[Rfam]
RNA sequence: AGUCUCCUGGUGCUUAUCACAGGCUGUGUUUCUACACUGACUAUAUAGAAAGAGGAGGCAGAGUAAACCUACUCCGUAUACACCUCAGCCCAGGGCCUGUGCCUAGUUUGUAUUAUGAAUUGGGGGAUUUGG
Numbered sequence: 001a002g003u004c005u006c007c008u009g010g011u012g013c014u015u016a017u018c019a020c021a022g023g024c025u026g027u028g029u030u031u032c033u034a035c036a037c038u039g040a041c042u043a044u045a046u047a048g049a050a051a052g053a054g055g056a057g058g059c060a061g062a063g064u065a066a067a068c069c070u071a072c073u074c075c076g077u078a079u080a081c082a083c084c085u086c087a088g089c090c091c092a093g094g095g096c097c098u099g100u101g102c103c104u105a106g107u108u109u110g111u112a113u114u115a116u117g118a119a120u121u122g123g124g125g126g127a128u129u130u131g132g
Base pairs, nucleotide, nucleotide: 002059003058004057005056006055007054008053021042022041026037027036028035029034072124073123074122076120077119086110087109088108090106092104093103094102
This 132-nucleotide RNA sequence from Tupaia belangeri belongs to the Rfam family "Small nucleolar RNA SNORA51". Rfam classes the family as an H/ACA-box small nucleolar RNA. Gene Ontology terms of the family: RNA processing and nucleolus. The source organism's lineage runs through Eukaryota, Chordata, Vertebrata, Boreoeutheria and Tupaia belangeri. The match comes from Rfam's covariance-model search (127 bits).